[Rfam]
RNA sequence: GCUGAGCUCUGUAGCGAGGGCUUGUGACUCAAGUGAGAGCAAACAAGUAAUUGGAACGUUCGUUUGGUCCACGUGGUAGAGUUUAGGCUGGAUUUUCACUGACUCGCCCGAUCCAAGUCAGGAGAUGUGCUUCGUGUUUCGAGCGAAGGCUCGGGUCACGUGGUUCUUAGAGCGGAGGACAUUGCGUGAGGCUGGUUUCACAGAGCAGCGAAUACUUCCCGCUUCUGGUAGUGGAUGGAUAACGAGUCGGUUCCGCUUGAGCUCAAUAUGAUCUCAUGGGCCGAACUCAAUUGGACCAAUUACUUU
Numbered sequence: 001g002c003u004g005a006g007c008u009c010u011g012u013a014g015c016g017a018g019g020g021c022u023u024g025u026g027a028c029u030c031a032a033g034u035g036a037g038a039g040c041a042a043a044c045a046a047g048u049a050a051u052u053g054g055a056a057c058g059u060u061c062g063u064u065u066g067g068u069c070c071a072c073g074u075g076g077u078a079g080a081g082u083u084u085a086g087g088c089u090g091g092a093u094u095u096u097c098a099c100u101g102a103c104u105c106g107c108c109c110g111a112u113c114c115a116a117g118u119c120a121g122g123a124g125a126u127g128u129g130c131u132u133c134g135u136g137u138u139u140c141g142a143g144c145g146a147a148g149g150c151u152c153g154g155g156u157c158a159c160g161u162g163g164u165u166c167u168u169a170g171a172g173c174g175g176a177g178g179a180c181a182u183u184g185c186g187u188g189a190g191g192c193u194g195g196u197u198u199c200a201c202a203g204a205g206c207a208g209c210g211a212a213u214a215c216u217u218c219c220c221g222c223u224u225c226u227g228g229u230a231g232u233g234g235a236u237g238g239a240u241a242a243c244g245a246g247u248c249g250g251u252u253c254c255g256c257u258u259g260a261g262c263u264c265a266a267u268a269u270g271a272u273c274u275c276a277u278g279g280g281c282c283g284a285a286c287u288c289a290a291u292u293g294g295a296c297c298a299a300u301u302a303c304u305u306u
Stems, first nucleotide, its partner, number of pairs: 001040003004023007028037003045305010057293002059290002062286006069279003073275001075273003079264009089255003099250008108238002111236005117229008127166001129164003133160004138155007167172001174219005183212001185210003192203003

Record summary:
A member of the RNA family "Plant signal recognition particle RNA" from Capsella rubella, 306 nucleotides long. Rfam 15.1 lists 4,988 matches to the family in 266 species. By type it is a non-coding RNA gene. Clan: SRP clan. The match comes from Rfam's covariance-model search (231 bits).